Rfam assigns this 102-nucleotide RNA from Desulfacinum hydrothermale to the family "TPP riboswitch aptamer (THI element)". The family's consensus secondary structure is taken from published work.
RNA sequence: AAGGGUCACUAGGGGUGGUUGACUGAGAGUCCCGUCAGUGCGGGACAACCCUUAUCACCUGAUCUGGGUAAUACCAGCGUAGGGAAGUGGCGCCGACAAAGG
Numbered sequence: 001a002a003g004g005g006u007c008a009c010u011a012g013g014g015g016u017g018g019u020u021g022a023c024u025g026a027g028a029g030u031c032c033c034g035u036c037a038g039u040g041c042g043g044g045a046c047a048a049c050c051c052u053u054a055u056c057a058c059c060u061g062a063u064c065u066g067g068g069u070a071a072u073a074c075c076a077g078c079g080u081a082g083g084g085a086a087g088u089g090g091c092g093c094c095g096a097c098a099a100a101g102g
Stems, first nucleotide, its partner, number of pairs: 006090005011052004017023001030045005058083004064077004